Shown here is an 81-nucleotide sequence from Geodermatophilus sp. TF02-6, a member of the family "Actino-pnp RNA". The base pairs follow the family's consensus structure, which is taken from published work. NCBI's taxonomy places the organism under Bacteria, Bacillati, Actinomycetota, Geodermatophilaceae, Geodermatophilus.
RNA sequence: GUCGGUCCUCGGUGGUGGCCCCCGGGUACGCCCCUCCCCACGGAGGGGAACGACCCCCGUGGGCCUCGAUCGAAGACCGGU
Numbered sequence: 001g002u003c004g005g006u007c008c009u010c011g012g013u014g015g016u017g018g019c020c021c022c023c024g025g026g027u028a029c030g031c032c033c034c035u036c037c038c039c040a041c042g043g044a045g046g047g048g049a050a051c052g053a054c055c056c057c058c059g060u061g062g063g064c065c066u067c068g069a070u071c072g073a074a075g076a077c078c079g080g081u
Base pairs, nucleotide, nucleotide: 001081002080003079004078005077006076007075009073010072011071012070013069017065018064019063020062021061023059024058025057026056